[Rfam]
Background:
MIR396 microRNA precursor family: a 118-nucleotide RNA from Macleaya cordata. For this family Rfam cites "Computational identification of plant microRNAs and their targets, including a stress-induced miRNA" (Jones-Rhoades and Bartel, Mol Cell, 2004). The family has 26 seed sequences and 744 matches in Rfam 15.1. Taxonomically the source falls in Macleaya (Eukaryota, Tracheophyta, Ranunculales, Papaveroideae). A search with the family's covariance model found it, with a score of 87 bits.
RNA sequence: GGUCGUACUUUUCCACAGCUUUCUUGAACUUCUUAUAAUUAUGUUGUAAAUCAUGAACCAUUGAUUUAAAAAAUAAGGCUUAGAAGAAGUUCAAGGAAGCUGUGGGAAAAUAUGACAA
Numbered sequence: 001g002g003u004c005g006u007a008c009u010u011u012u013c014c015a016c017a018g019c020u021u022u023c024u025u026g027a028a029c030u031u032c033u034u035a036u037a038a039u040u041a042u043g044u045u046g047u048a049a050a051u052c053a054u055g056a057a058c059c060a061u062u063g064a065u066u067u068a069a070a071a072a073a074u075a076a077g078g079c080u081u082a083g084a085a086g087a088a089g090u091u092c093a094a095g096g097a098a099g100c101u102g103u104g105g106g107a108a109a110a111u112a113u114g115a116c117a118a
Base pairs, nucleotide, nucleotide: 003115004114005113006112007111013105014104015103017101018100019099020098021097022096024094025093026092027091029089030088031087032086033085